[Rfam]
RNA: Histone 3' UTR stem-loop
Organism: Maylandia zebra
RNA sequence: UCAACGGCUCUUUUAAGAGCCACACACCUCCCUUUAAGAGCUUUGG
Numbered sequence: 001u002c003a004a005c006g007g008c009u010c011u012u013u014u015a016a017g018a019g020c021c022a023c024a025c026a027c028c029u030c031c032c033u034u035u036a037a038g039a040g041c042u043u044u045g046g
Base pairs, nucleotide, nucleotide: 006021007020008019009018010017011016